Bacterial small signal recognition particle RNA: a 99-nucleotide RNA sequence from Bryocella elongata.

RNA sequence: UGCCGGGUCCUACGUGACGCGAUCCCGCCAACCCCGCCAGGUCCGGAAGGAAGCAACGGUAACGGGCCAUCGCGGGCGCAGUAGGGUAACCCGGUACAU
Numbered sequence: 001u002g003c004c005g006g007g008u009c010c011u012a013c014g015u016g017a018c019g020c021g022a023u024c025c026c027g028c029c030a031a032c033c034c035c036g037c038c039a040g041g042u043c044c045g046g047a048a049g050g051a052a053g054c055a056a057c058g059g060u061a062a063c064g065g066g067c068c069a070u071c072g073c074g075g076g077c078g079c080a081g082u083a084g085g086g087u088a089a090c091c092c093g094g095u096a097c098a099u
Stems, first nucleotide, its partner, number of pairs: 004093005009085005015076001018074005024066004034059003042051003

It scores 68 bits against the family's covariance model.
The base pairs follow the family's consensus structure, which is taken from published work.
Rfam classes the family as a non-coding RNA gene.
Taxonomically the source falls in Bryocella (Bacteria, Pseudomonadati, Terriglobia, Acidobacteriaceae).